[Rfam]
RNA sequence: CGAAUCUUGAGGGGAUUCAACUUUAGUACGAGAGGAUUUAGUUGGACGAAGCUCUGGUGUACCAGUUGUCGCGCUAGCGGCACGGCUGGAUAGCUAACUUCGGAACGGAUAAACGCUGAAAGCAUCUAAGCGUGAAGCCCAACCCAAGAUUAGGAUUCGUAGACAUUAGUCGAGAGCCCCCUGGAAGACGACCAGGUUGAUAGGCUGGACGUGUAAGCACGGUAACGUGUUAAGCUUACCAGUACUAAUGGGCGAAG
Numbered sequence: 001c002g003a004a005u006c007u008u009g010a011g012g013g014g015a016u017u018c019a020a021c022u023u024u025a026g027u028a029c030g031a032g033a034g035g036a037u038u039u040a041g042u043u044g045g046a047c048g049a050a051g052c053u054c055u056g057g058u059g060u061a062c063c064a065g066u067u068g069u070c071g072c073g074c075u076a077g078c079g080g081c082a083c084g085g086c087u088g089g090a091u092a093g094c095u096a097a098c099u100u101c102g103g104a105a106c107g108g109a110u111a112a113a114c115g116c117u118g119a120a121a122g123c124a125u126c127u128a129a130g131c132g133u134g135a136a137g138c139c140c141a142a143c144c145c146a147a148g149a150u151u152a153g154g155a156u157u158c159g160u161a162g163a164c165a166u167u168a169g170u171c172g173a174g175a176g177c178c179c180c181c182u183g184g185a186a187g188a189c190g191a192c193c194a195g196g197u198u199g200a201u202a203g204g205c206u207g208g209a210c211g212u213g214u215a216a217g218c219a220c221g222g223u224a225a226c227g228u229g230u231u232a233a234g235c236u237u238a239c240c241a242g243u244a245c246u247a248a249u250g251g252g253c254g255a256a257g
Stems, first nucleotide, its partner, number of pairs: 001159008011145003017045006047102005055096003062089005067082006107139002113133005162171003176253004180196005201247003204243005209237001211235001217230005
Description
The record is a 257-nucleotide part of an RNA from Stieleria bergensis, which matches "Bacterial large subunit ribosomal RNA" in Rfam. Lineage of the source: Bacteria > Pseudomonadati > Planctomycetia > Pirellulales > Stieleria. Rfam links the family to the GO terms ribosome and structural constituent of ribosome.